This 209-nucleotide sequence from Ectocarpus sp. CCAP 1310/34 belongs to the Rfam family "MIR8622 microRNA precursor family". The base pairs follow the family's consensus structure, which was predicted with RNAalifold. Taxonomically the source falls in Ectocarpus (Eukaryota, Sar, Ochrophyta, Ectocarpales). Rfam 15.1 lists 93 matches to the family in 2 species.
RNA sequence: CCGAAAUCUGCGCCGGAACCAAGCGGCAUCCAACAUUUGUCACUGCCGUGCUCACCGCCACGGACCGUAAACCCCUGAACGGAGGUUGUCAACAGUAGCUAGCGGCAUCAGCUACUGUUGAAACCCGCAGUUCAGGAGAUUGGGGUCAGCGGCGGCGAGCACGGCAGUGACAAAUGUUGGAUGCUGCUUGGUUCCGGCGCAGAUUUUGG
Numbered sequence: 001c002c003g004a005a006a007u008c009u010g011c012g013c014c015g016g017a018a019c020c021a022a023g024c025g026g027c028a029u030c031c032a033a034c035a036u037u038u039g040u041c042a043c044u045g046c047c048g049u050g051c052u053c054a055c056c057g058c059c060a061c062g063g064a065c066c067g068u069a070a071a072c073c074c075c076u077g078a079a080c081g082g083a084g085g086u087u088g089u090c091a092a093c094a095g096u097a098g099c100u101a102g103c104g105g106c107a108u109c110a111g112c113u114a115c116u117g118u119u120g121a122a123a124c125c126c127g128c129a130g131u132u133c134a135g136g137a138g139a140u141u142g143g144g145g146u147c148a149g150c151g152g153c154g155g156c157g158a159g160c161a162c163g164g165c166a167g168u169g170a171c172a173a174a175u176g177u178u179g180g181a182u183g184c185u186g187c188u189u190g191g192u193u194c195c196g197g198c199g200c201a202g203a204u205u206u207u208g209g
Base pairs, nucleotide, nucleotide: 001209002208003207004206005205006204007203008202009201010200011199012198013197014196015195016194017193018192019191020190021189022188023187024186025185026184027183028182029181030180031179032178033177035175036174037173038172039171040170041169043167044166045165046164047163048162049161050160051159052158053157055155056154057153058152059151061149063147064146065145066144068142069141070140072138074136075135076134077133078132079131080130084126085125090120091119092118093117094116095115096114097113098112099111100110